[Rfam]
A member of the RNA family "mir-31 microRNA precursor family" from Sus scrofa, 78 nucleotides long. Rfam links the family to the GO terms gene silencing by miRNA and RISC complex. The base pairs follow the family's consensus structure, which was predicted with RNAalifold. The sequence is in the family's curated seed alignment.
RNA sequence: ACUGGAGAGGAGGCAAGAUGCUGGCAUAGCUGUUAAACUGAGAACCUGCUAUGCCAACAUAUUGCCAUCUUUCUUGUC
Numbered sequence: 001a002c003u004g005g006a007g008a009g010g011a012g013g014c015a016a017g018a019u020g021c022u023g024g025c026a027u028a029g030c031u032g033u034u035a036a037a038c039u040g041a042g043a044a045c046c047u048g049c050u051a052u053g054c055c056a057a058c059a060u061a062u063u064g065c066c067a068u069c070u071u072u073c074u075u076g077u078c
Stems, first nucleotide, its partner, number of pairs: 004074007012066005018060003022056009
Annotation: For this family Rfam cites "The small RNA profile during Drosophila melanogaster development" (Aravin et al., Dev Cell, 2003). The family has 75 seed sequences and 1,181 matches in Rfam 15.1.